Record summary: Glycine riboswitch aptamer: a 118-nucleotide RNA from Rugamonas rivuli. Rfam describes the family as follows. This family represents the bacterial glycine riboswitch. A search with the family's covariance model found it, with a score of 46 bits.
RNA sequence: UGGACCAACUCUGGAGAGCGGUCGCGGCGCAAGCCGGCGGCCCACCGAAGGGGCGCACGGGAACCAGGAGCCAGCCUCCUCCCGUAAUCUCUCAGGUACCAAGGACAGAGGGGUCUGC
Number, nucleotide and partner (000 for none) at each position: 001u000002g000003g000004a000005c000006c113007a000008a000009c110010u109011c108012u107013g106014g000015a000016g000017a000018g000019c000020g042021g041022u040023c039024g038025c037026g000027g000028c000029g000030c000031a000032a000033g000034c000035c000036g000037g025038c024039g023040g022041c021042c020043c000044a097045c096046c095047g093048a092049a000050g000051g091052g090053g089054c000055g000056c000057a085058c084059g083060g082061g081062a080063a000064c000065c000066a000067g000068g000069a000070g000071c000072c000073a000074g000075c000076c000077u000078c000079c000080u062081c061082c060083c059084g058085u057086a000087a000088u000089c053090u052091c051092u048093c047094a000095g046096g045097u044098a000099c000100c000101a000102a000103g000104g000105a000106c013107a012108g011109a010110g009111g000112g000113g006114u000115c000116u000117g000118c000